[Rfam]
RNA sequence: GUUGAGCAUCAAGAACGCUAAUGCGUACCAACCGACACGCUCGUUGCACGGUGGUUUAGAAUGUGGGUGGCUCUACCAAACUAAUCGAGCUUUC
Numbered sequence: 001g002u003u004g005a006g007c008a009u010c011a012a013g014a015a016c017g018c019u020a021a022u023g024c025g026u027a028c029c030a031a032c033c034g035a036c037a038c039g040c041u042c043g044u045u046g047c048a049c050g051g052u053g054g055u056u057u058a059g060a061a062u063g064u065g066g067g068u069g070g071c072u073c074u075a076c077c078a079a080a081c082u083a084a085u086c087g088a089g090c091u092u093u094c
Stems, first nucleotide, its partner, number of pairs: 006064004015026004027055003032051003036046002041087001043085001066077004